[Rfam]
This 277-nucleotide RNA from Sciurus carolinensis belongs to the Rfam family "Mason-Pfizer monkey virus packaging signal". Lineage of the source: Eukaryota > Chordata > Boreoeutheria > Glires > Sciurus. On this family, see Mustafa et al., Virus Res 2004: "Mutational analysis of the predicted secondary RNA structure of the Mason-Pfizer monkey virus packaging signal". The match comes from Rfam's covariance-model search (136 bits). Rfam's curators write: This family represents a group of sequences that are related to the Mason-Pfizer monkey virus (MPMV) packaging signal.
RNA sequence: UGGCGCCCAAUGUGGGGCCUGGACAUGGGGGAAAUUGUGAGGGAAGAGGCAUUUGAUAGUUUGGCAGAACACAGCAGAAGUCAGUUCAACAAAGAUUGCCACGUGAACCUGCCGCGUCGCUCUUAAAAGGUACAGUAACGCCAAAUUAUGGGACAAGAUUUAGGUAAGCAUAAAAUUUUUGUUAAGCAGUUAAAAGAAGCCUUAAAGACAAGGGGAGUAAGGGUUAAAAGUAAUGAGCUUUUUAAGUUUUUUGACCUUAUCAAGGACACCUGCCCAU
Numbered sequence: 001u002g003g004c005g006c007c008c009a010a011u012g013u014g015g016g017g018c019c020u021g022g023a024c025a026u027g028g029g030g031g032a033a034a035u036u037g038u039g040a041g042g043g044a045a046g047a048g049g050c051a052u053u054u055g056a057u058a059g060u061u062u063g064g065c066a067g068a069a070c071a072c073a074g075c076a077g078a079a080g081u082c083a084g085u086u087c088a089a090c091a092a093a094g095a096u097u098g099c100c101a102c103g104u105g106a107a108c109c110u111g112c113c114g115c116g117u118c119g120c121u122c123u124u125a126a127a128a129g130g131u132a133c134a135g136u137a138a139c140g141c142c143a144a145a146u147u148a149u150g151g152g153a154c155a156a157g158a159u160u161u162a163g164g165u166a167a168g169c170a171u172a173a174a175a176u177u178u179u180u181g182u183u184a185a186g187c188a189g190u191u192a193a194a195a196g197a198a199g200c201c202u203u204a205a206a207g208a209c210a211a212g213g214g215g216a217g218u219a220a221g222g223g224u225u226a227a228a229a230g231u232a233a234u235g236a237g238c239u240u241u242u243u244a245a246g247u248u249u250u251u252u253g254a255c256c257u258u259a260u261c262a263a264g265g266a267c268a269c270c271u272g273c274c275c276a277u
Base pairs, nucleotide, nucleotide: 006031007030008029012026013025014024036046038044081130082129085126086125095121097119100116102114103113136156141152142151144149161204162203163202164200165199212252213251214250215249216248217247218246221239222238224236225235226234262277264275265274267272